Background: A member of the RNA family "Leucine operon leader" from Kluyvera cryocrescens, 147 nucleotides long. The literature on the family includes a 1982 paper in Annu Rev Genet by Kolter and Yanofsky, "Attenuation in amino acid biosynthetic operons". Taxonomically the source falls in Kluyvera (Bacteria, Gammaproteobacteria, Enterobacterales, Enterobacteriaceae). At least 6 amino acid operons are known to be regulated by attenuation. In each a leader sequence of 150-200 bp is found upstream of the first gene in the operon. This leader sequence can assume two different secondary structures known as the terminator and the anti-terminator structure. In each case the leader also codes for very short peptide sequence that is rich in the end product amino acid of the operon.
[Rfam]
Nucleotides: 147
Base pairs, nucleotide, nucleotide: 004108006106007105008104009103010102012098013097014096015095016094024086026084027082028081029080030079046074047073048072049071050070054068055067056066119144120143121142122141123140124139125138126137127136128135129134
Number, partner (000 for none) and nucleotide at each position: 001000a002000g003000a004108a005000u006106g007105a008104u009103g010102a011000c012098a013097a014096u015095g016094u017000u018000a019000c020000g021000u022000a023000c024086c025000a026084c027082u028081c029080g030079c031000a032000u033000c034000a035000a036000c037000g038000g039000u040000c041000u042000a043000c044000u045000a046074c047073u048072a049071c050070u051000a052000a053000a054068c055067g056066c057000c058000u059000c060000u061000u062000c063000u064000g065000u066056g067055c068054g069000c070050g071049g072048u073047a074046g075000a076000c077000u078000g079030g080029u081028g082027g083000u084026g085000c086024g087000a088000c089000g090000u091000a092000u093000u094016a095015c096014g097013u098012u099000a100000a101000g102010u103009c104008a105007u106006c107000a108004u109000c110000a111000g112000u113000a114000a115000a116000a117000c118000a119144a120143a121142a122141a123140c124139c125138c126137g127136c128135g129134c130000c131000g132000c133000u134129g135128c136127g137126c138125g139124g140123g141122u142121u143120u144119u145000u146000u147000u